[Rfam]
RNA sequence: CGGCGCUUGAGGCUUCUGCUUCAGGUCGUCGGCAGCAGUGCUGAUGUGCGUGAGGCAGAUGCAGAAAAGCCCCGAAGUUAAUUCUCAUUAACCCCGAGGCCCCUGUAUGACACGCAACAUCAGGGUAUCCUCUUACCUGCCGCAAGGCAAGGAGAAGAAGGUCAUG
Numbered sequence: 001c002g003g004c005g006c007u008u009g010a011g012g013c014u015u016c017u018g019c020u021u022c023a024g025g026u027c028g029u030c031g032g033c034a035g036c037a038g039u040g041c042u043g044a045u046g047u048g049c050g051u052g053a054g055g056c057a058g059a060u061g062c063a064g065a066a067a068a069g070c071c072c073c074g075a076a077g078u079u080a081a082u083u084c085u086c087a088u089u090a091a092c093c094c095c096g097a098g099g100c101c102c103c104u105g106u107a108u109g110a111c112a113c114g115c116a117a118c119a120u121c122a123g124g125g126u127a128u129c130c131u132c133u134u135a136c137c138u139g140c141c142g143c144a145a146g147g148c149a150a151g152g153a154g155a156a157g158a159a160g161g162u163c164a165u166g
Stems, first nucleotide, its partner, number of pairs: 002072002005070004012062002015059008025049002074095001077092006096132004102125003107120003137157002140154001